[Rfam]
RNA sequence: AUGUCCCUGCGGUGCUCGAUAGCGACAUGUGUGUCUUGAGCCGAUAAGCAAAUGCUUAAGGAAACUGAAAAUUAGAAGUUGAAAAACAAGCCCGCUUGACGGGAAGUUUGCCAUCUUCAUGAAGUUUCCCUCUUGAAUCUCAUGGUUCAAGAACCCCCGUCGCACCGACACUGUGGGGCUCAA
Numbered sequence: 001a002u003g004u005c006c007c008u009g010c011g012g013u014g015c016u017c018g019a020u021a022g023c024g025a026c027a028u029g030u031g032u033g034u035c036u037u038g039a040g041c042c043g044a045u046a047a048g049c050a051a052a053u054g055c056u057u058a059a060g061g062a063a064a065c066u067g068a069a070a071a072u073u074a075g076a077a078g079u080u081g082a083a084a085a086a087c088a089a090g091c092c093c094g095c096u097u098g099a100c101g102g103g104a105a106g107u108u109u110g111c112c113a114u115c116u117u118c119a120u121g122a123a124g125u126u127u128c129c130c131u132c133u134u135g136a137a138u139c140u141c142a143u144g145g146u147u148c149a150a151g152a153a154c155c156c157c158c159g160u161c162g163c164a165c166c167g168a169c170a171c172u173g174u175g176g177g178g179c180u181c182a183a
Base pairs, nucleotide, nucleotide: 003180005178006177007176008175009174010173011172012171013170014169017167018166034152035151037149038148039147040146041145042144060129061128062127064125065124066123069120075118076117077116078115080113086107087106091103092102093101094100
Shown here is a 183-nucleotide RNA from Methylophaga thalassica, a member of the family "6S / SsrS RNA". The match comes from Rfam's covariance-model search (79 bits). Lineage of the source: Bacteria > Pseudomonadati > Pseudomonadota > Thiotrichales > Methylophaga thalassica. The family's RNA type in Rfam is non-coding RNA gene. Pairs were carried over by alignment from the consensus structure, which is taken from published work.